[Rfam]
Rfam assigns this 94-nucleotide sequence from Butyrivibrio sp. ob235 to the family "THF (Tetrahydrofolate) riboswitch aptamer". The base pairs follow the family's consensus structure, which is taken from published work. NCBI's taxonomy places the organism under Bacteria, Bacillati, Bacillota, Lachnospiraceae, Butyrivibrio.
RNA sequence: AGCAGAGUAGAAUCCGGUGCGUUAAGUGCCAUCUGGACAGGGACUGCCAGAAGGACGAAGGGCAACCGCGGUGUCGGAUUCGGUUCCCACUGUA
Numbered sequence: 001a002g003c004a005g006a007g008u009a010g011a012a013u014c015c016g017g018u019g020c021g022u023u024a025a026g027u028g029c030c031a032u033c034u035g036g037a038c039a040g041g042g043a044c045u046g047c048c049a050g051a052a053g054g055a056c057g058a059a060g061g062g063c064a065a066c067c068g069c070g071g072u073g074u075c076g077g078a079u080u081c082g083g084u085u086c087c088c089a090c091u092g093u094a
Base pairs, nucleotide, nucleotide: 002093003092004091005090010081011080012079013078014077015076016075017074018073019072020070021069022068026056027055029054030053032051033050034049035048036047040087041086042085043084044083060067061066